[Rfam]
Shown here is a 359-nucleotide part of an RNA from Rheinheimera sp. D18, a member of the family "Bacterial large subunit ribosomal RNA".
RNA sequence: UGAGAGAACUCUGCUGAAGGAACUAGGCAAAAUAGUACCGUAACUUCGGGAGAAGGUACGCUCUUUGCUGUUAAGGACUUGCUCCGUAAGCAGCGAAGAGUCGCAGUGACCAGCUGGCUGCAACUGUUUAUUAAAAACACAGCACUCUGCAAACUCGUAAGAGGACGUAUAGGGUGUGACACCUGCCCGGUGCCGGAAGGUUAAUUGAUGGGGUUAGCGCAAGCGAAGCUCUUGAUCGAAGCCCCGGUAAACGGCGGCCGUAACUAUAACGGUCCUAAGGUAGCGAAAUUCCUUGUCGGGUAAGUUCCGACCUGCACGAAUGGUGUAAUGAUGGCCAGGCUGUCUCCAGCAGAGACUCA
Numbered sequence: 001u002g003a004g005a006g007a008a009c010u011c012u013g014c015u016g017a018a019g020g021a022a023c024u025a026g027g028c029a030a031a032a033u034a035g036u037a038c039c040g041u042a043a044c045u046u047c048g049g050g051a052g053a054a055g056g057u058a059c060g061c062u063c064u065u066u067g068c069u070g071u072u073a074a075g076g077a078c079u080u081g082c083u084c085c086g087u088a089a090g091c092a093g094c095g096a097a098g099a100g101u102c103g104c105a106g107u108g109a110c111c112a113g114c115u116g117g118c119u120g121c122a123a124c125u126g127u128u129u130a131u132u133a134a135a136a137a138c139a140c141a142g143c144a145c146u147c148u149g150c151a152a153a154c155u156c157g158u159a160a161g162a163g164g165a166c167g168u169a170u171a172g173g174g175u176g177u178g179a180c181a182c183c184u185g186c187c188c189g190g191u192g193c194c195g196g197a198a199g200g201u202u203a204a205u206u207g208a209u210g211g212g213g214u215u216a217g218c219g220c221a222a223g224c225g226a227a228g229c230u231c232u233u234g235a236u237c238g239a240a241g242c243c244c245c246g247g248u249a250a251a252c253g254g255c256g257g258c259c260g261u262a263a264c265u266a267u268a269a270c271g272g273u274c275c276u277a278a279g280g281u282a283g284c285g286a287a288a289u290u291c292c293u294u295g296u297c298g299g300g301u302a303a304g305u306u307c308c309g310a311c312c313u314g315c316a317c318g319a320a321u322g323g324u325g326u327a328a329u330g331a332u333g334g335c336c337a338g339g340c341u342g343u344c345u346c347c348a349g350c351a352g353a354g355a356c357u358c359a
Stems, first nucleotide, its partner, number of pairs: 001359004009354008018345003035059005044049001060101006080095004085090001102106001114338007121330002125139003142177008150167001154163003180325004185255003190252002192248005199243003210232005217224002256274006275279001285312001295311006
Its family is annotated with structural constituent of ribosome and ribosome in the Gene Ontology. The family's consensus secondary structure is taken from published work.